Rfam assigns this 104-nucleotide sequence from Moraxella macacae to the family "Vibrio RNA AS9". The organism belongs to Moraxella macacae, within Bacteria. For this family Rfam cites "Experimental discovery of sRNAs in Vibrio cholerae by direct cloning, 5S/tRNA depletion and parallel sequencing" (Liu et al., Nucleic Acids Res, 2009). By type it is an antisense RNA. Rfam's curators write: Identified by direct cloning an parallel sequencing experiments with 5S/tRNA depletion. Confirmed by Northern blot. It scores 55 bits against the family's covariance model.

[Rfam]
RNA sequence: UUGCCUACAGCGCGCUUCAGUGAGCGUCAAACACACAAGACCGCGUGCGUGGGUAAUCAUAAAAUUAAUCGCUUCAGGCGUAAUGUGGCUGGCCGCCAUAAUCA
Numbered sequence: 001u002u003g004c005c006u007a008c009a010g011c012g013c014g015c016u017u018c019a020g021u022g023a024g025c026g027u028c029a030a031a032c033a034c035a036c037a038a039g040a041c042c043g044c045g046u047g048c049g050u051g052g053g054u055a056a057u058c059a060u061a062a063a064a065u066u067a068a069u070c071g072c073u074u075c076a077g078g079c080g081u082a083a084u085g086u087g088g089c090u091g092g093c094c095g096c097c098a099u100a101a102u103c104a
Stems, first nucleotide, its partner, number of pairs: 003058001006055003010027004015022001035050002040046002066104001068102002071096002074092004079087002